[Rfam]
This 88-nucleotide RNA sequence from Theobroma umbraticum belongs to the Rfam family "Small nucleolar RNA R16". Pairs were carried over by alignment from the consensus structure, which was predicted with PFOLD. Rfam links the family to the GO terms nucleolus and RNA processing. By type it is a C/D-box small nucleolar RNA.
RNA sequence: GUUGGCAAGGGAUGAAUGCUUAUCUUAUCCUACACUCUGAUGAACCGUGUUGAAUCAGUUUUCCGCUUAUUGAUAUUCUGAUGCCAAU
Dot-bracket structure: ..(((((..........................................................................)))))..
Numbered sequence: 001g002u003u004g005g006c007a008a009g010g011g012a013u014g015a016a017u018g019c020u021u022a023u024c025u026u027a028u029c030c031u032a033c034a035c036u037c038u039g040a041u042g043a044a045c046c047g048u049g050u051u052g053a054a055u056c057a058g059u060u061u062u063c064c065g066c067u068u069a070u071u072g073a074u075a076u077u078c079u080g081a082u083g084c085c086a087a088u
Stems, first nucleotide, its partner, number of pairs: 003086005